[Rfam]
RNA sequence: AGGCUGUGAAGCAGUGGGCUGGUUCGGUGACAGUCGAUUGUGAAGCCAGACCGUGGGUUGUGCGGGAACCACAAGCCAAAUAAGCGGCGGAAAUGCUGCUGAAAGAAAACGCAAAAA
Numbered sequence: 001a002g003g004c005u006g007u008g009a010a011g012c013a014g015u016g017g018g019c020u021g022g023u024u025c026g027g028u029g030a031c032a033g034u035c036g037a038u039u040g041u042g043a044a045g046c047c048a049g050a051c052c053g054u055g056g057g058u059u060g061u062g063c064g065g066g067a068a069c070c071a072c073a074a075g076c077c078a079a080a081u082a083a084g085c086g087g088c089g090g091a092a093a094u095g096c097u098g099c100u101g102a103a104a105g106a107a108a109a110c111g112c113a114a115a116a117a
Stems, first nucleotide, its partner, number of pairs: 002047003011041005017035005024079001026077002062112003083100007
A member of the RNA family "drum RNA", 117 nucleotides long. Rfam's curators put it in the seed alignment.